[Rfam]
RNA sequence: AAGGAGGAUGUGAGAGUUAGCAUUCCUGCCUGAUACCAUCUUCCUAGAUUUAGUCUGCCAUGUUUAUGUGCUUGCUGAACUUCUGGACUGUUCUGCUGGCCUCAACAGGCAGAACAUCAUU
Numbered sequence: 001a002a003g004g005a006g007g008a009u010g011u012g013a014g015a016g017u018u019a020g021c022a023u024u025c026c027u028g029c030c031u032g033a034u035a036c037c038a039u040c041u042u043c044c045u046a047g048a049u050u051u052a053g054u055c056u057g058c059c060a061u062g063u064u065u066a067u068g069u070g071c072u073u074g075c076u077g078a079a080c081u082u083c084u085g086g087a088c089u090g091u092u093c094u095g096c097u098g099g100c101c102u103c104a105a106c107a108g109g110c111a112g113a114a115c116a117u118c119a120u121u
Base pairs, nucleotide, nucleotide: 001031003029005027006025007024008023009022010021011020056114058112070100071099072098074096075095077093079091080090
RNA: Small nucleolar RNA snoR104